[Rfam]
RNA sequence: AGAGUAUUGCGAGGAGCCUUCCUUAGUACGAGAGGACCGGGAAGGACGAACCGCUGGUGUACCAGUUAUCGUGCCAACGGUAAACGCUGGGUAGCCAAGUUCGGAGCGGAUAACCGCUGAAAGCAUCUAAGUGGGAAGCCCACCUCCAGAUGAGUACUCUCAUGAAUUAAAUUCAGUAAGGUCACCCACAGAACAUGGGUUGAUAGGUCAGUGGUGGAAGCGUGGUAACACGUGCAGCCGACUGAUACUAACAGACCGAGG
Numbered sequence: 001a002g003a004g005u006a007u008u009g010c011g012a013g014g015a016g017c018c019u020u021c022c023u024u025a026g027u028a029c030g031a032g033a034g035g036a037c038c039g040g041g042a043a044g045g046a047c048g049a050a051c052c053g054c055u056g057g058u059g060u061a062c063c064a065g066u067u068a069u070c071g072u073g074c075c076a077a078c079g080g081u082a083a084a085c086g087c088u089g090g091g092u093a094g095c096c097a098a099g100u101u102c103g104g105a106g107c108g109g110a111u112a113a114c115c116g117c118u119g120a121a122a123g124c125a126u127c128u129a130a131g132u133g134g135g136a137a138g139c140c141c142a143c144c145u146c147c148a149g150a151u152g153a154g155u156a157c158u159c160u161c162a163u164g165a166a167u168u169a170a171a172u173u174c175a176g177u178a179a180g181g182u183c184a185c186c187c188a189c190a191g192a193a194c195a196u197g198g199g200u201u202g203a204u205a206g207g208u209c210a211g212u213g214g215u216g217g218a219a220g221c222g223u224g225g226u227a228a229c230a231c232g233u234g235c236a237g238c239c240g241a242c243u244g245a246u247a248c249u250a251a252c253a254g255a256c257c258g259a260g261g
Stems, first nucleotide, its partner, number of pairs: 001160008011146004017045007047103005055097003062090005067082006108140002114134005163175003177259001180257004184200005204250003207246005212240003220233005
Shown here is a 261-nucleotide part of an RNA from Chroococcidiopsis thermalis, a member of the family "Bacterial large subunit ribosomal RNA".